A member of the RNA family "Bacteroidete tryptophan peptide leader RNA" from Aquimarina amphilecti, 123 nucleotides long. Lineage of the source: Bacteria > Pseudomonadati > Flavobacteriales > Flavobacteriaceae > Aquimarina. It is annotated as a cis-regulatory leader.
RNA sequence: UUGACUCAAGAAAUUUUAAAAUGAAUAUAAUCUUAACAAAUACGUGGUGGUGGUCAUCUUAUAACGAAAACGUCGUGAGAUAGCUCCUGUCAUAUAGUUAAGUAAACAUAUCAAAGGCUUGUC
Numbered sequence: 001u002u003g004a005c006u007c008a009a010g011a012a013a014u015u016u017u018a019a020a021a022u023g024a025a026u027a028u029a030a031u032c033u034u035a036a037c038a039a040a041u042a043c044g045u046g047g048u049g050g051u052g053g054u055c056a057u058c059u060u061a062u063a064a065c066g067a068a069a070a071c072g073u074c075g076u077g078a079g080a081u082a083g084c085u086c087c088u089g090u091c092a093u094a095u096a097g098u099u100a101a102g103u104a105a106a107c108a109u110a111u112c113a114a115a116g117g118c119u120u121g122u123c
Stems, first nucleotide, its partner, number of pairs: 036098002040095003044091001047088001049087002052084001056081002059078002062075001064073003